[Rfam]
RNA sequence: UCUUCAUUCCUCGCACUCUCUCGCCUCUUUGACCGGCGAGAGAGUGUGGAGAAUGAAGAGA
Numbered sequence: 001u002c003u004u005c006a007u008u009c010c011u012c013g014c015a016c017u018c019u020c021u022c023g024c025c026u027c028u029u030u031g032a033c034c035g036g037c038g039a040g041a042g043a044g045u046g047u048g049g050a051g052a053a054u055g056a057a058g059a060g061a
Base pairs, nucleotide, nucleotide: 001059002058003057004056005055006054007053012048013047014046015045016044017043019041020040021039022038
Shown here is a 61-nucleotide sequence from Pristionchus pacificus, a member of the family "mir-8364 microRNA precursor family". NCBI's taxonomy places the organism under Eukaryota, Ecdysozoa, Chromadorea, Rhabditina, Pristionchus. A search with the family's covariance model found it, with a score of 69 bits.